[Rfam]
RNA sequence: GCCAAAACUAGACUCUCAGUCUGGUAGAGAAAAUGUCCUGGUGAACUAGAUUCUCUGAGAGAAUCUGCUGUUCCUGGUACACUGGUAGGGGCACCCAGCGUCCUGUUAGUGCCCAGGGCAGAAAAGUCC
Numbered sequence: 001g002c003c004a005a006a007a008c009u010a011g012a013c014u015c016u017c018a019g020u021c022u023g024g025u026a027g028a029g030a031a032a033a034u035g036u037c038c039u040g041g042u043g044a045a046c047u048a049g050a051u052u053c054u055c056u057g058a059g060a061g062a063a064u065c066u067g068c069u070g071u072u073c074c075u076g077g078u079a080c081a082c083u084g085g086u087a088g089g090g091g092c093a094c095c096c097a098g099c100g101u102c103c104u105g106u107u108a109g110u111g112c113c114c115a116g117g118g119c120a121g122a123a124a125a126g127u128c129c
Stems, first nucleotide, its partner, number of pairs: 003057002006054001007052001009050001012047001016044003020040001023037004068121006076113001080111006087104002090102003
Rfam assigns this 129-nucleotide RNA from Mus spicilegus to the family "Small nucleolar RNA SNORA3/SNORA45 family". On this family, see Huttenhofer et al., EMBO J 2001: "RNomics: an experimental approach that identifies 201 candidates for novel, small, non-messenger RNAs in mouse". Rfam 15.1 lists 2,080 matches to the family in 639 species. Rfam's curators write: The members of this family belong to the H/ACA class of snoRNAs which are thought to guide the sites of modification of uridines to pseudouridines. Its family is annotated with RNA processing and nucleolus in the Gene Ontology. The family is grouped with related families in Rfam's "SNORA3 clan". NCBI's taxonomy places the organism under Eukaryota, Vertebrata, Euteleostomi, Murinae, Mus. The family's consensus secondary structure was predicted with RNAalifold.